[Rfam]
RNA sequence: CUAUGCUGUUUUCUUAUAUUUUUAUUUUAUCUUAUUCAUAGAGAACAGA
Numbered sequence: 001c002u003a004u005g006c007u008g009u010u011u012u013c014u015u016a017u018a019u020u021u022u023u024a025u026u027u028u029a030u031c032u033u034a035u036u037c038a039u040a041g042a043g044a045a046c047a048g049a
Base pairs, nucleotide, nucleotide: 006048007047008046009045010044011043

The record is a 49-nucleotide RNA sequence from Dendrobium catenatum, which matches "Plastid-rpoB 5UTR RNA" in Rfam.
Rfam 15.1 lists 102 matches to the family in 69 species.
Rfam describes the family as follows. Plastid rpoB is a non-coding RNA (ncRNA) recognised in plastids.